[Rfam]
RNA sequence: AUGCCUUAAACUGAUGAGUAAGGAAAAUAACGACGCGGGGUGACGCCCGUGUCCUCGUCUAACUAAACGAGUUUAAUUUUUUAAAGGGUAUAGGUCUGUUUGCUAAGGUGACUCACUUACUUUGUGAGAUGCCUUGCAAGCCUAUGAUCUACCCU
Numbered sequence: 001a002u003g004c005c006u007u008a009a010a011c012u013g014a015u016g017a018g019u020a021a022g023g024a025a026a027a028u029a030a031c032g033a034c035g036c037g038g039g040g041u042g043a044c045g046c047c048c049g050u051g052u053c054c055u056c057g058u059c060u061a062a063c064u065a066a067a068c069g070a071g072u073u074u075a076a077u078u079u080u081u082u083a084a085a086g087g088g089u090a091u092a093g094g095u096c097u098g099u100u101u102g103c104u105a106a107g108g109u110g111a112c113u114c115a116c117u118u119a120c121u122u123u124g125u126g127a128g129a130u131g132c133c134u135u136g137c138a139a140g141c142c143u144a145u146g147a148u149c150u151a152c153c154c155u
Base pairs, nucleotide, nucleotide: 004023005022006021007020008019032053033052034051035050036049037048038047039046054071055070056069057068058067085155086154087153088152089151092150093149094148095147096146101138102137106134107133108132109131110130112128113127114126115125116124
A member of the RNA family "U12 minor spliceosomal RNA" from Clupea harengus, 155 nucleotides long. The source organism's lineage runs through Eukaryota, Metazoa, Deuterostomia, Clupeiformes and Clupea. Gene Ontology terms of the family: mRNA branch site recognition, pre-mRNA branch point binding and U12 snRNP. Rfam classes the family as a spliceosomal small nuclear RNA. A reference for the family is Tarn and Steitz (1997), "Pre-mRNA splicing: the discovery of a new spliceosome doubles the challenge", Trends Biochem Sci.